About this RNA:
Rfam assigns this 400-nucleotide RNA sequence from Paenibacillus sp. 598K to the family "Bacterial RNase P class A".
RNA sequence: AAAGUCUGACAGACAAUCGCUGGCAGCCGCGCGCUGCGAGAGGAAAGUCCGGGCUCCACAGGGCAGGAUGCUGGAUAACGUCCAGUCGGCGCGAGCCGAAGGAUAGUGCCACAGAAACGGACCGCCGAUGGCCGGCUCAGCCGGCACAGGCAAGGGUGGAACCGUGGUGUAAGAGACCACGAGCGGCUAUGGCGACAUAGCGGCUGGUAAACCCCAUCUGGAGCAAGACCGAAGAGAAUGCGGCGGCAACGCAGCUCUGGCACCGGAGUGCAUUCGGGUUGGUCGCUUGAACGGAUCAGCAAUGAUUCGUCUAGAUAGAUGAUUGUCGCUUCAUCGUGGGAGGGUCGUUCCCGUCUGCACCACCAGAAGCACAGAACCCGGCUUACGGCAGACUUUCCGU
Numbered sequence: 001a002a003a004g005u006c007u008g009a010c011a012g013a014c015a016a017u018c019g020c021u022g023g024c025a026g027c028c029g030c031g032c033g034c035u036g037c038g039a040g041a042g043g044a045a046a047g048u049c050c051g052g053g054c055u056c057c058a059c060a061g062g063g064c065a066g067g068a069u070g071c072u073g074g075a076u077a078a079c080g081u082c083c084a085g086u087c088g089g090c091g092c093g094a095g096c097c098g099a100a101g102g103a104u105a106g107u108g109c110c111a112c113a114g115a116a117a118c119g120g121a122c123c124g125c126c127g128a129u130g131g132c133c134g135g136c137u138c139a140g141c142c143g144g145c146a147c148a149g150g151c152a153a154g155g156g157u158g159g160a161a162c163c164g165u166g167g168u169g170u171a172a173g174a175g176a177c178c179a180c181g182a183g184c185g186g187c188u189a190u191g192g193c194g195a196c197a198u199a200g201c202g203g204c205u206g207g208u209a210a211a212c213c214c215c216a217u218c219u220g221g222a223g224c225a226a227g228a229c230c231g232a233a234g235a236g237a238a239u240g241c242g243g244c245g246g247c248a249a250c251g252c253a254g255c256u257c258u259g260g261c262a263c264c265g266g267a268g269u270g271c272a273u274u275c276g277g278g279u280u281g282g283u284c285g286c287u288u289g290a291a292c293g294g295a296u297c298a299g300c301a302a303u304g305a306u307u308c309g310u311c312u313a314g315a316u317a318g319a320u321g322a323u324u325g326u327c328g329c330u331u332c333a334u335c336g337u338g339g340g341a342g343g344g345u346c347g348u349u350c351c352c353g354u355c356u357g358c359a360c361c362a363c364c365a366g367a368a369g370c371a372c373a374g375a376a377c378c379c380g381g382c383u384u385a386c387g388g389c390a391g392a393c394u395u396u397c398c399g400u
Stems, first nucleotide, its partner, number of pairs: 001396008010387001012327007020040002023037005045384003049381005054223004061263001063261002066219005071085005086100001087098004101214002106212002108208003122155002124151003129146002132143001163181006183204001186201006227284004236275006255268005291310008

Rfam links the family to the GO terms tRNA processing, ribonuclease P activity and dimeric ribonuclease P complex. It scores 275 bits against the family's covariance model. Rfam classes the family as a ribozyme. The organism belongs to Paenibacillus, within Bacteria.